[Rfam]
Shown here is a 58-nucleotide RNA from Lamium album, a member of the family "Plastid-psbA-4 3UTR RNA". Its Rfam clan is "Plastid-psbA 3UTR RNA clan". Taxonomically the source falls in Lamium (Eukaryota, Viridiplantae, lamiids, Lamioideae). From the family's description: Plastid psbA-4 is a non-coding RNA (ncRNA) present in plastids. It was identified in inverted repeat sequences in the 3 prime untranslate region (3UTR) of photosystem II quinone-binding protein (psbA). The family's consensus secondary structure was predicted with LocARNA.
RNA sequence: AAAUAUAAGGAGCAAUAAACUCUUUCUUGUUUUGUCAAGAGGGGUUAUUGCUCCUUAA
Numbered sequence: 001a002a003a004u005a006u007a008a009g010g011a012g013c014a015a016u017a018a019a020c021u022c023u024u025u026c027u028u029g030u031u032u033u034g035u036c037a038a039g040a041g042g043g044g045u046u047a048u049u050g051c052u053c054c055u056u057a058a
Base pairs, nucleotide, nucleotide: 006057007056008055009054010053011052012051013050014049015048016047017046022043024041025040026039027038028037029036